[Rfam]
RNA sequence: ACCCGGUUGUCCAAAAACCGGGGUUACUGAAGAGGCACACCCUCAUUGCCGGCAGUGCGGAACGGGUCUCCCAAUCCAAGCCAAGGCAGACAAAGCGAGCAGGAGCCGGGCAAGGCUUCAGCUCACCGCCGCGAGACGGCUUUUCAU
Numbered sequence: 001a002c003c004c005g006g007u008u009g010u011c012c013a014a015a016a017a018c019c020g021g022g023g024u025u026a027c028u029g030a031a032g033a034g035g036c037a038c039a040c041c042c043u044c045a046u047u048g049c050c051g052g053c054a055g056u057g058c059g060g061a062a063c064g065g066g067u068c069u070c071c072c073a074a075u076c077c078a079a080g081c082c083a084a085g086g087c088a089g090a091c092a093a094a095g096c097g098a099g100c101a102g103g104a105g106c107c108g109g110g111c112a113a114g115g116c117u118u119c120a121g122c123u124c125a126c127c128g129c130c131g132c133g134a135g136a137c138g139g140c141u142u143u144u145c146a147u
Stems, first nucleotide, its partner, number of pairs: 002022007034050004057129003081089001099111002